[Rfam]
RNA sequence: CGAGUUGGCCGGGCGGCCGCGGGGAGAAGUCCUCGAGGAAAGUCCGGACUCCACAGGGCAGGGUGGUUGCUAACGGCAACCCGGGGCGACCCGCGGGACAGUGCCACAGAAAACAGACCGCCCCGGUCCAGGCGUGCUGGUGCCUCCGGUACCGGCGGGCGUGGCACGGGGUAAGGGUGAAACGGUGGUGUAAGAGACCACCAGCAUCCCGGGUGACCGGGAUGGCUCGGUAAACCCCACCCGGAGCAAGGUCAAGAGGACGCCCGUGAAGGGUGUCUGUGCAGGCGUUCGAGGGCGGCCCGCCCGAUGCCUGCGGGUAGACCGCUCGAACCUGCCGGCGACGGCAGGUCUAGAUGGAUGGCCGCCACCCCGGUGCGAUGAGCGCCGGGGUACAGGAUCCGGCUUAUACGCCAACUCGUCCG
Numbered sequence: 001c002g003a004g005u006u007g008g009c010c011g012g013g014c015g016g017c018c019g020c021g022g023g024g025a026g027a028a029g030u031c032c033u034c035g036a037g038g039a040a041a042g043u044c045c046g047g048a049c050u051c052c053a054c055a056g057g058g059c060a061g062g063g064u065g066g067u068u069g070c071u072a073a074c075g076g077c078a079a080c081c082c083g084g085g086g087c088g089a090c091c092c093g094c095g096g097g098a099c100a101g102u103g104c105c106a107c108a109g110a111a112a113a114c115a116g117a118c119c120g121c122c123c124c125g126g127u128c129c130a131g132g133c134g135u136g137c138u139g140g141u142g143c144c145u146c147c148g149g150u151a152c153c154g155g156c157g158g159g160c161g162u163g164g165c166a167c168g169g170g171g172u173a174a175g176g177g178u179g180a181a182a183c184g185g186u187g188g189u190g191u192a193a194g195a196g197a198c199c200a201c202c203a204g205c206a207u208c209c210c211g212g213g214u215g216a217c218c219g220g221g222a223u224g225g226c227u228c229g230g231u232a233a234a235c236c237c238c239a240c241c242c243g244g245a246g247c248a249a250g251g252u253c254a255a256g257a258g259g260a261c262g263c264c265c266g267u268g269a270a271g272g273g274u275g276u277c278u279g280u281g282c283a284g285g286c287g288u289u290c291g292a293g294g295g296c297g298g299c300c301c302g303c304c305c306g307a308u309g310c311c312u313g314c315g316g317g318u319a320g321a322c323c324g325c326u327c328g329a330a331c332c333u334g335c336c337g338g339c340g341a342c343g344g345c346a347g348g349u350c351u352a353g354a355u356g357g358a359u360g361g362c363c364g365c366c367a368c369c370c371c372g373g374u375g376c377g378a379u380g381a382g383c384g385c386c387g388g389g390g391u392a393c394a395g396g397a398u399c400c401g402g403c404u405u406a407u408a409c410g411c412c413a414a415c416u417c418g419u420c421c422g
Stems, first nucleotide, its partner, number of pairs: 001418009011407001012366007020035006040405003044402005049246004056301004061242005066080005081095001082093004096237002101235002103231003118176002120172006128164003184202006204226001205224008250323004281314006293305004330349008
Dot-bracket structure: (((((((((.((((((((.((((((....))))))....[[[.[[[[[((((...[[[[.((((((((((.....)))))(((((....)))).)((...(((((............((((((((..(((...............................)))..))))))..)).......((((((.......)))))).(((((((((....)))))))).)..)))..)))))))))))))...((((...........................((((((......((((.]]]]))))...)))))).....))))......((((((((....))))))))..........)))))))...............................]]]]]]]].)..)))))))))....